[Rfam]
RNA sequence: ACAGUCCUUAUCUUGGGGAAGCAUGAUCGUUCAAUGAACGUAUAGUGAGGAUGAUUUUGCUAACACCAAUUACAAACACAUACGUCACCGCCUACAGUUUCGGCUGAUGGGUUUGGUGCAAUUUAUGGAAAA
Numbered sequence: 001a002c003a004g005u006c007c008u009u010a011u012c013u014u015g016g017g018g019a020a021g022c023a024u025g026a027u028c029g030u031u032c033a034a035u036g037a038a039c040g041u042a043u044a045g046u047g048a049g050g051a052u053g054a055u056u057u058u059g060c061u062a063a064c065a066c067c068a069a070u071u072a073c074a075a076a077c078a079c080a081u082a083c084g085u086c087a088c089c090g091c092c093u094a095c096a097g098u099u100u101c102g103g104c105u106g107a108u109g110g111g112u113u114u115g116g117u118g119c120a121a122u123u124u125a126u127g128g129a130a131a132a
Base pairs, nucleotide, nucleotide: 005019006018007017008016009015021060022059023058026055027054028053029052030051031050032049038046039045084119086118087117088116089115090114091110092109095106096105097104098103

The record is a 132-nucleotide RNA from Strongylocentrotus purpuratus, which matches "U4atac minor spliceosomal RNA" in Rfam.
The family is grouped with related families in Rfam's "U4 clan".
A search with the family's covariance model found it, with a score of 93 bits.
The family's consensus secondary structure is taken from published work.